RNA sequence: ACCUUCUUGUGAAAGCACUGUACUAAAACUACAGAAACCAAGGCUGAGCUUUGGGUUCUGUAGUAAUGCUAGUAGAGUAAAUGCAAGAAGAAGAAUAACUCUGCACUGGAUCCAAAAGGACUAGGGUGGACCUCUUUCUUAAUGUCCGAUGUCCUAUGUCUGAAGAUUUGGUGCAACAGUU
Number, nucleotide and partner (000 for none) at each position: 001a000002c000003c000004u000005u000006c000007u000008u000009g000010u000011g000012a000013a000014a000015g000016c000017a000018c077019u076020g000021u074022a073023c072024u071025a070026a000027a000028a067029c000030u065031a064032c000033a000034g058035a057036a000037a000038c054039c053040a052041a051042g050043g049044c048045u000046g000047a000048g044049c043050u042051u041052u040053g039054g038055g000056u000057u035058c034059u000060g000061u000062a000063g000064u031065a030066a000067u028068g000069c000070u025071a024072g023073u022074a021075g000076a019077g018078u000079a000080a000081a000082u000083g000084c000085a000086a000087g000088a000089a000090g000091a000092a000093g000094a000095a000096u000097a000098a000099c000100u000101c000102u175103g174104c173105a172106c171107u170108g169109g168110a167111u000112c000113c000114a000115a000116a000117a000118g000119g000120a000121c000122u000123a152124g000125g150126g000127u148128g147129g146130a145131c000132c000133u000134c000135u000136u000137u000138c000139u000140u000141a000142a000143u000144g000145u130146c129147c128148g127149a000150u125151g000152u123153c000154c000155u000156a000157u000158g000159u000160c000161u000162g000163a000164a000165g000166a000167u110168u109169u108170g107171g106172u105173g104174c103175a102176a000177c000178a000179g000180u000181u000

Rfam assigns this 181-nucleotide sequence from Upupa epops to the family "Small nucleolar RNA SNORA81".
A reference for the family is Gu et al. (2005), "A novel experimental approach for systematic identification of box H/ACA snoRNAs from eukaryotes", Nucleic Acids Res.
Rfam links the family to the GO terms RNA processing and nucleolus.
Taxonomically the source falls in Upupa (Eukaryota, Opisthokonta, Dipnotetrapodomorpha, Aves).